[Rfam]
RNA: MIR390 microRNA precursor family
Organism: Tetracentron sinense
RNA sequence: UUGGAGAAUCUGUUAAGCUCAGGAGGGAUAGCGCCACGGAUGAUGCUUCUAAAAAAGAGUAACGCUUUGAUCAUCCAUAGCGCUGUCUAUCCUGAGCUUCAUAGGUUCUUCUU
Numbered sequence: 001u002u003g004g005a006g007a008a009u010c011u012g013u014u015a016a017g018c019u020c021a022g023g024a025g026g027g028a029u030a031g032c033g034c035c036a037c038g039g040a041u042g043a044u045g046c047u048u049c050u051a052a053a054a055a056a057g058a059g060u061a062a063c064g065c066u067u068u069g070a071u072c073a074u075c076c077a078u079a080g081c082g083c084u085g086u087c088u089a090u091c092c093u094g095a096g097c098u099u100c101a102u103a104g105g106u107u108c109u110u111c112u113u
Base pairs, nucleotide, nucleotide: 010104016098017097018096019095020094021093022092023091024090026088027087028086029085030084031083032082033081034080